[Rfam]
RNA: c-di-GMP-I riboswitch aptamer
RNA sequence: ACGACGAAACGGCAAACCGCGUGAAAGCGCGGGACGCAAAGCUAUAGGGGCUUCGUGAGACGACAACUCUCACAUGCCAGCCAGUUCCCGAA
Numbered sequence: 001a002c003g004a005c006g007a008a009a010c011g012g013c014a015a016a017c018c019g020c021g022u023g024a025a026a027g028c029g030c031g032g033g034a035c036g037c038a039a040a041g042c043u044a045u046a047g048g049g050g051c052u053u054c055g056u057g058a059g060a061c062g063a064c065a066a067c068u069c070u071c072a073c074a075u076g077c078c079a080g081c082c083a084g085u086u087c088c089c090g091a092a
Stems, first nucleotide, its partner, number of pairs: 012037002017032006040086004047082002049078003056072004